[Rfam]
RNA: Small nucleolar RNA SNORD24
RNA sequence: UGCAGAGGAUGUAAACGAAUAUUUGCUAUCUAAAGCAAUGAUGUUGACAAUUAAUCACCAAGAUCGCUGAUGCA
Numbered sequence: 001u002g003c004a005g006a007g008g009a010u011g012u013a014a015a016c017g018a019a020u021a022u023u024u025g026c027u028a029u030c031u032a033a034a035g036c037a038a039u040g041a042u043g044u045u046g047a048c049a050a051u052u053a054a055u056c057a058c059c060a061a062g063a064u065c066g067c068u069g070a071u072g073c074a
Base pairs, nucleotide, nucleotide: 001074002073003072004071